The family of this 151-nucleotide RNA from Salibacterium salarium is "Ribosomal protein L10 leader". This family is a putative r-protein leader autoregulatory structure found in B. subtilis and other low-GC Gram-positive bacteria. It is located in the 5' untranslated regions of mRNAs encoding ribosomal proteins L10 and L12 (rplJ-rplL). Its family is annotated with regulation of gene expression in the Gene Ontology. NCBI's taxonomy places the organism under Bacteria, Bacilli, Caryophanales, Bacillaceae, Salibacterium.
RNA sequence: AAAACAAGAUAAUAAAUACCGCAGACAGCAGGUGCUAAUAAGGCUUAAUUUCCUGCCGAGGUAGUUUUCGACAUACUUUUUAUAGAAAAUAGUAUGAUAUGAGAACCAUCUACCUUCAUGUCUGUGCACAUGAAGGUUUUUUGUGGGAUGA
Numbered sequence: 001a002a003a004a005c006a007a008g009a010u011a012a013u014a015a016a017u018a019c020c021g022c023a024g025a026c027a028g029c030a031g032g033u034g035c036u037a038a039u040a041a042g043g044c045u046u047a048a049u050u051u052c053c054u055g056c057c058g059a060g061g062u063a064g065u066u067u068u069c070g071a072c073a074u075a076c077u078u079u080u081u082a083u084a085g086a087a088a089a090u091a092g093u094a095u096g097a098u099a100u101g102a103g104a105a106c107c108a109u110c111u112a113c114c115u116u117c118a119u120g121u122c123u124g125u126g127c128a129c130a131u132g133a134a135g136g137u138u139u140u141u142u143g144u145g146g147g148a149u150g151a
Stems, first nucleotide, its partner, number of pairs: 028056005034044003113136009